[Rfam]
This 77-nucleotide sequence from Leptobrachium leishanense belongs to the Rfam family "bZIP non canonical Hac1/Xbp1 intron". The organism belongs to Leptobrachium, within Eukaryota. The family's RNA type in Rfam is small RNA. bZIP intron RNA is a non-canonical intron that was first reported in HAC1 gene in yeast and XBP1 gene in Metazoa.
RNA sequence: CGGAGAACGGGUCCGCUGAGUCCGCAGCACUCAGACUACGUGCACCUCUGCAGCAGGAGCAGGCCCAGAUGUCCCCG
Numbered sequence: 001c002g003g004a005g006a007a008c009g010g011g012u013c014c015g016c017u018g019a020g021u022c023c024g025c026a027g028c029a030c031u032c033a034g035a036c037u038a039c040g041u042g043c044a045c046c047u048c049u050g051c052a053g054c055a056g057g058a059g060c061a062g063g064c065c066c067a068g069a070u071g072u073c074c075c076c077g
Stems, first nucleotide, its partner, number of pairs: 001077003005073002009066005016034006043059001045057003